[Rfam]
The family of this 115-nucleotide sequence from Actinocrispum wychmicini is "SAM (S-adenosyl methionine) riboswitch aptamer". A search with the family's covariance model found it, with a score of 114 bits. NCBI's taxonomy places the organism under Bacteria, Actinomycetota, Pseudonocardiales, Pseudonocardiaceae, Actinocrispum. From the family's description: SAM-IV is a mRNA element that regulates gene expression via direct sensing of S-adenosylmethionine (SAM or AdoMet). SAM-IV riboswitches share conserved nucleotide positions with the previously described SAM-I riboswitches sequence analysis and molecular recognition experiments suggest that SAM-I and SAM-IV riboswitches share similar ligand binding sites, but have different scaffolds.

RNA sequence: GGUCAUGAGUGCCAGCGUCAAGCCCCGGCUCGCUGGCCGGCAACCCUCCUACCGCGGUGGGGUGCCCCGGGUGAGGACCAGGCCCGCCACACCCGUGGCAGGGCAAGCGCGGACC
Numbered sequence: 001g002g003u004c005a006u007g008a009g010u011g012c013c014a015g016c017g018u019c020a021a022g023c024c025c026c027g028g029c030u031c032g033c034u035g036g037c038c039g040g041c042a043a044c045c046c047u048c049c050u051a052c053c054g055c056g057g058u059g060g061g062g063u064g065c066c067c068c069g070g071g072u073g074a075g076g077a078c079c080a081g082g083c084c085c086g087c088c089a090c091a092c093c094c095g096u097g098g099c100a101g102g103g104c105a106a107g108c109g110c111g112g113a114c115c
Stems, first nucleotide, its partner, number of pairs: 001079004009038001011037006021030002039066003044062003048057002082104004086099005
Dot-bracket structure: ((((....(.((((((....((......)).)))))))(((..(((.((......))..))).))).........))))..(((((((((....))))).))))...........